[Rfam]
RNA sequence: AGCCGUAGCUUGCCUAAUCCCGGGCGCGUGGCCCGGGAGCCGGGGACCCGAAACCGCACCUGGGGUGAAUCCGCUUCGGUGGUAGGGCGCACUCCCAUGCCCGAACCCGUCAGCUAACCCGGCCGGCAGAGGGAGAGGAACA
Numbered sequence: 001a002g003c004c005g006u007a008g009c010u011u012g013c014c015u016a017a018u019c020c021c022g023g024g025c026g027c028g029u030g031g032c033c034c035g036g037g038a039g040c041c042g043g044g045g046a047c048c049c050g051a052a053a054c055c056g057c058a059c060c061u062g063g064g065g066u067g068a069a070u071c072c073g074c075u076u077c078g079g080u081g082g083u084a085g086g087g088c089g090c091a092c093u094c095c096c097a098u099g100c101c102c103g104a105a106c107c108c109g110u111c112a113g114c115u116a117a118c119c120c121g122g123c124c125g126g127c128a129g130a131g132g133g134a135g136a137g138g139a140a141c142a
Base pairs, nucleotide, nucleotide: 011128012127013126014125018038019037020036021035022034023033024032025031039123040122041121042120043119044118049062050061063108064107065106071082072081073080074079085102086101087100088099
This 142-nucleotide RNA from Nonomuraea fuscirosea belongs to the Rfam family "c-di-AMP riboswitch aptamer (ydaO/yuaA leader)". Rfam describes the family as follows. This family represents a conserved RNA structure found upstream of the ydaO and yuaA genes in Bacillus subtilis and related genes in other bacteria. Lineage of the source: Bacteria > Bacillati > Actinomycetota > Streptosporangiales > Nonomuraea.